RNA sequence: GGGGAGGUAGCUCAGUGGGAGAGUGCUUGCUUUGCAGGUAAGAGGCCCUGGGUUCAACCGCCAGCAUCUCCA
Numbered sequence: 001g002g003g004g005a006g007g008u009a010g011c012u013c014a015g016u017g018g019g020a021g022a023g024u025g026c027u028u029g030c031u032u033u034g035c036a037g038g039u040a041a042g043a044g045g046c047c048c049u050g051g052g053u054u055c056a057a058c059c060g061c062c063a064g065c066a067u068c069u070c071c072a
Stems, first nucleotide, its partner, number of pairs: 001071005007065001010024004026042005048064004

A member of the RNA family "tRNA" from Cochlearius cochlearius, 72 nucleotides long. It scores 48 bits against the family's covariance model. By type it is a transfer RNA. NCBI's taxonomy places the organism under Eukaryota, Opisthokonta, Eumetazoa, Dipnotetrapodomorpha, Cochlearius. Rfam's curators write: Transfer RNA (tRNA) molecules are approximately 80 nucleotides in length.